Background: A member of the RNA family "COG3860 RNA" from Jannaschia seohaensis, 53 nucleotides long. The family's consensus secondary structure is taken from published work.
RNA sequence: GGGUUGGCAGACACCCAGGCGUCGCUGCUCUUUCGGGAGAGCUAAAUCUGCCA
Numbered sequence: 001g002g003g004u005u006g007g008c009a010g011a012c013a014c015c016c017a018g019g020c021g022u023c024g025c026u027g028c029u030c031u032u033u034c035g036g037g038a039g040a041g042c043u044a045a046a047u048c049u050g051c052c053a
Base pairs, nucleotide, nucleotide: 001016002015003014004013028039029038030037031036

By type it is a cis-regulatory element. The source organism's lineage runs through Bacteria, Pseudomonadati, Pseudomonadota, Alphaproteobacteria and Jannaschia.